[Rfam]
Nucleotides: 087
Stems, first nucleotide, its partner, number of pairs: 012037002017032006040081004046077002048073003055067004
Number, partner (000 for none) and nucleotide at each position: 001000a002000u003000a004000g005000g006000g007000a008000a009000a010000a011000g012037g013036c014000a015000a016000a017032c018031c019030c020029g021028u022027c023000g024000a025000a026000a027022g028021g029020c030019g031018g032017g033000g034000a035000c036013g037012c038000a039000a040081a041080g042079c043078c044000a045000g046077g047076g048073g049072u050071c051000u052000a053000c054000a055067g056066c057065u058064c059000g060000u061000c062000a063000u064058g065057a066056g067055c068000c069000a070000u071050g072049a073048c074000a075000g076047c077046c078043g079042g080041u081040u082000g083000c084000c085000a086000c087000a
c-di-GMP-I riboswitch aptamer: an 87-nucleotide RNA sequence from Acidihalobacter prosperus. Taxonomically the source falls in Acidihalobacter (Bacteria, Pseudomonadati, Pseudomonadota, Chromatiales). The base pairs follow the family's consensus structure, which is taken from published work. A search with the family's covariance model found it, with a score of 82 bits.